[Rfam]
This 74-nucleotide RNA from Cohaesibacter marisflavi belongs to the Rfam family "Makes More Granules Regulator RNA (mmgR)".
Taxonomically the source falls in Cohaesibacter (Bacteria, Pseudomonadota, Alphaproteobacteria, Cohaesibacteraceae).
For this family Rfam cites "Genome-wide profiling of Hfq-binding RNAs uncovers extensive post-transcriptional rewiring of major stress response and symbiotic regulons in Sinorhizobium meliloti" (Torres-Quesada et al., RNA Biol, 2014).
The family has 87 seed sequences and 1,791 matches in Rfam 15.1.
By type it is a small RNA.
Rfam describes the family as follows. SuhB later renamed mmgR (makes more granules regulator) was a putative non-coding RNA found multiple times in the Agrobacterium tumefaciens genome and related alpha-proteobacteria. Other non-coding RNAs uncovered in the same analysis include: speF, ybhL, metA, and serC.Several studies inSinorhizobium meliloti showed that suhB element is indeed a non-coding RNA:firstly it was detected on Northern blot and called Sm8RNA, secondly in an RNAseq study referred to as SmelC689.The mutant phenotype's (strain lacking the small RNA) cytoplasm contains higher content of polyhydroxybutyrate (PBH)storage granules than wild type strain. The sRNA is required to limit the PBH intracellular accumulation when the nitrogen-fixing Sinorhizobium meliloti is under condition of surplus carbon in relation to nitrogen. It has been renamed to mmgR. Further study confirmed that mmgR fine-tunes the regulation of PBH storage.Northern blot confirmed the expression of the sRNA in other rhizobia species.
Clan: suhB sRNA clan.

RNA sequence: UCCCGCCGCCCUUGCUGGGCGUUUCCUCCUUAGACUUUUCGGGCCGCGUUAAGCGGCCUUUUUUUUGUUUUGAG
Numbered sequence: 001u002c003c004c005g006c007c008g009c010c011c012u013u014g015c016u017g018g019g020c021g022u023u024u025c026c027u028c029c030u031u032a033g034a035c036u037u038u039u040c041g042g043g044c045c046g047c048g049u050u051a052a053g054c055g056g057c058c059u060u061u062u063u064u065u066u067g068u069u070u071u072g073a074g
Stems, first nucleotide, its partner, number of pairs: 008020004041059007